Rfam assigns this 87-nucleotide RNA from Thalassobius vesicularis to the family "Glycine riboswitch aptamer". Pairs were carried over by alignment from the consensus structure. Taxonomically the source falls in Thalassovita (Bacteria, Pseudomonadota, Rhodobacterales, Roseobacteraceae). It scores 62 bits against the family's covariance model. About the family: This family represents the bacterial glycine riboswitch.
[Rfam]
RNA sequence: CCCAUCUGAUCGGGAGAACCGGGUAAUCCGGUGCCGAAGGAGCAACCGCCCCGGAAACUCUCAGGCCCAAAGGACCGAUCAGGCAGU
Numbered sequence: 001c002c003c004a005u006c007u008g009a010u011c012g013g014g015a016g017a018a019c020c021g022g023g024u025a026a027u028c029c030g031g032u033g034c035c036g037a038a039g040g041a042g043c044a045a046c047c048g049c050c051c052c053g054g055a056a057a058c059u060c061u062c063a064g065g066c067c068c069a070a071a072g073g074a075c076c077g078a079u080c081a082g083g084c085a086g087u
Stems, first nucleotide, its partner, number of pairs: 006082008019031004033066003036062002040060003046054002